[Rfam]
Rfam assigns this 335-nucleotide part of an RNA from Brevundimonas sp. Leaf363 to the family "Bacterial large subunit ribosomal RNA". The match comes from Rfam's covariance-model search (2746 bits).
RNA sequence: UGAGAGAACUGUGCUGAAGGAACUCGGCAAAUUGCACGCGUAACUUCGGAAUAAGCGUGACUCACCUAGGGCAACCUAGAAUGAGUGGCACAAGCCAGGGGGUAGCGACUGUUUAGCAAAAACACAGGGCUCUGCGAAGCAGCAAUGCGACGUAUAGGGUCUGACGCCUGCCCGGUGCCUGAAGGUUAAAGGGAGAUGUGAAAGCGUCGAACUGAAGCCCAGGUAAACGGCGGCCGUAACUAUAACGGUCCUAAGGUAGCGAAAUUCCUUGUCGGGUAAGUUCCGACCUGCACGAAUGGCGUAACGACUUCCCCACUGUCUCCAGCACAGGCUCA
Numbered sequence: 001u002g003a004g005a006g007a008a009c010u011g012u013g014c015u016g017a018a019g020g021a022a023c024u025c026g027g028c029a030a031a032u033u034g035c036a037c038g039c040g041u042a043a044c045u046u047c048g049g050a051a052u053a054a055g056c057g058u059g060a061c062u063c064a065c066c067u068a069g070g071g072c073a074a075c076c077u078a079g080a081a082u083g084a085g086u087g088g089c090a091c092a093a094g095c096c097a098g099g100g101g102g103u104a105g106c107g108a109c110u111g112u113u114u115a116g117c118a119a120a121a122a123c124a125c126a127g128g129g130c131u132c133u134g135c136g137a138a139g140c141a142g143c144a145a146u147g148c149g150a151c152g153u154a155u156a157g158g159g160u161c162u163g164a165c166g167c168c169u170g171c172c173c174g175g176u177g178c179c180u181g182a183a184g185g186u187u188a189a190a191g192g193g194a195g196a197u198g199u200g201a202a203a204g205c206g207u208c209g210a211a212c213u214g215a216a217g218c219c220c221a222g223g224u225a226a227a228c229g230g231c232g233g234c235c236g237u238a239a240c241u242a243u244a245a246c247g248g249u250c251c252u253a254a255g256g257u258a259g260c261g262a263a264a265u266u267c268c269u270u271g272u273c274g275g276g277u278a279a280g281u282u283c284c285g286a287c288c289u290g291c292a293c294g295a296a297u298g299g300c301g302u303a304a305c306g307a308c309u310u311c312c313c314c315a316c317u318g319u320c321u322c323c324a325g326c327a328c329a330g331g332c333u334c335a
Base pairs, nucleotide, nucleotide: 001335002334003333004332009330010329011328012327013326014325015324016323018321019320020319035059036058037057038056039055044049060086061085062084063083064082066079067078068077069076070075087091099314100313101312102311104309105308106306107305110124111123112122127162128161129160130159131158132157133156134155135152139148140147141146165301166300167299168298170231171230172229175228176227177224178223179222180221181220184219185218186217190213191212195208196207197206198205199204232250233249234248235247236246237245251255261288271287272286273285274284275283276282
Dot-bracket structure: ((((....((((((((.(((..............(((((....(....).....)))))(((((.(((((....)))))..)))))(...).......((((.((((..(((.........)))..(((((((((...(((....)))...)..))))))))..((((.(((..(((((((..(((...((...(((((....)))))...))...))))))))..)))))((((((.......))))))(...).....(.........((((((.....))))))).........))))...)).)).))))....))).)))))))).))))